RNA sequence: AAUGAAUGAUGACAAAAUGUUUCGGUCCCAGAUGAAACAGAAUGAUUCUAUUUCCCCAUUUUCUGACAUU
Numbered sequence: 001a002a003u004g005a006a007u008g009a010u011g012a013c014a015a016a017a018u019g020u021u022u023c024g025g026u027c028c029c030a031g032a033u034g035a036a037a038c039a040g041a042a043u044g045a046u047u048c049u050a051u052u053u054c055c056c057c058a059u060u061u062u063c064u065g066a067c068a069u070u
Stems, first nucleotide, its partner, number of pairs: 001070004
Overview: A member of the RNA family "Small nucleolar RNA SNORD73" from Pitta sordida, 70 nucleotides long. A reference for the family is Rebane et al. (1998), "A novel snoRNA (U73) is encoded within the introns of the human and mouse ribosomal protein S3a genes", Gene. A search with the family's covariance model found it, with a score of 75 bits. Pairs were carried over by alignment from the consensus structure, which was predicted with PFOLD. Taxonomically the source falls in Pitta (Eukaryota, Dipnotetrapodomorpha, Tetrapoda, Archelosauria). The family's RNA type in Rfam is C/D-box small nucleolar RNA.